[Rfam]
RNA sequence: UAUUUGAUGACUGUAACGAAGUGUUGCGCACAUGGGUCAUUUUCAGCC
Numbered sequence: 001u002a003u004u005u006g007a008u009g010a011c012u013g014u015a016a017c018g019a020a021g022u023g024u025u026g027c028g029c030a031c032a033u034g035g036g037u038c039a040u041u042u043u044c045a046g047c048c
Stems, first nucleotide, its partner, number of pairs: 008039005021033004
A member of the RNA family "ssnA RNA", 48 nucleotides long. The family's consensus secondary structure is taken from published work. The family's RNA type in Rfam is cis-regulatory element.